The family of this 92-nucleotide RNA sequence from Actinokineospora spheciospongiae is "ZMP/ZTP riboswitch aptamer (pfl RNA motif)".
RNA sequence: ACCCAGGGCCGUGACUGGCGUGCAGCGGGUGGAAUCGACCACCGGGGAGCGGUCCUGGGCGGAGGACGGCACCGAACGCCUGGGUGUUCCGC
Numbered sequence: 001a002c003c004c005a006g007g008g009c010c011g012u013g014a015c016u017g018g019c020g021u022g023c024a025g026c027g028g029g030u031g032g033a034a035u036c037g038a039c040c041a042c043c044g045g046g047g048a049g050c051g052g053u054c055c056u057g058g059g060c061g062g063a064g065g066a067c068g069g070c071a072c073c074g075a076a077c078g079c080c081u082g083g084g085u086g087u088u089c090c091g092c
Base pairs, nucleotide, nucleotide: 003058004057005056006055007054008053009052010051011050012049015046016045017080018079019078020077021076029042030041031040032039069087070086071085072084073083
Dot-bracket structure: ..((((((((((..(([[[[[.......((((......))))..))..))))))))))..........(((((..]]]]]..))))).....
Gene Ontology terms of the family: one-carbon metabolic process and regulation of purine nucleotide biosynthetic process.